[Rfam]
Annotation
Shown here is a 106-nucleotide RNA from Zasmidium cellare, a member of the family "Small nucleolar RNA Z13/snr52". Rfam 15.1 lists 1,203 matches to the family in 866 species. Gene Ontology terms of the family: RNA processing and nucleolus. By type it is a C/D-box small nucleolar RNA. NCBI's taxonomy places the organism under Eukaryota, Opisthokonta, Mycosphaerellales, Zasmidium, Zasmidium cellare.
RNA sequence: CAUGUUCACAUGAUGAAAUAUUUUUGGAUGUUAAAACACAUUUUCUACCGAUGGCGCAAAAACCGUGUGGAAAUCUCCAUGUUGCCUUCCUUCUGAUCUUUGACAC
Numbered sequence: 001c002a003u004g005u006u007c008a009c010a011u012g013a014u015g016a017a018a019u020a021u022u023u024u025u026g027g028a029u030g031u032u033a034a035a036a037c038a039c040a041u042u043u044u045c046u047a048c049c050g051a052u053g054g055c056g057c058a059a060a061a062a063c064c065g066u067g068u069g070g071a072a073a074u075c076u077c078c079a080u081g082u083u084g085c086c087u088u089c090c091u092u093c094u095g096a097u098c099u100u101u102g103a104c105a106c
Base pairs, nucleotide, nucleotide: 003105004104005103025079026078027077028076